[Rfam]
RNA sequence: GUUGUCAGAUUCACUUCAAUCCAUGUGUGUUAAUGUAGAUUGAGAUGAAAUUUAGUUCAAAUUCUACUCCAGUCCACCUCAACACAUGUGGAUUGAUGUAAAUCCAACU
Number, nucleotide and partner (000 for none) at each position: 001g000002u000003u000004g108005u107006c000007a000008g104009a103010u102011u101012c000013a099014c098015u000016u096017c095018a094019a093020u092021c091022c090023a089024u088025g087026u086027g085028u084029g083030u082031u081032a000033a000034u000035g077036u076037a000038g074039a073040u072041u071042g070043a000044g000045a000046u066047g065048a000049a000050a000051u000052u000053u000054a000055g000056u000057u000058c000059a000060a000061a000062u000063u000064c000065u047066a046067c000068u000069c000070c042071a041072g040073u039074c038075c000076a036077c035078c000079u000080c000081a031082a030083c029084a028085c027086a026087u025088g024089u023090g022091g021092a020093u019094u018095g017096a016097u000098g014099u013100a000101a011102a010103u009104c008105c000106a000107a005108c004109u000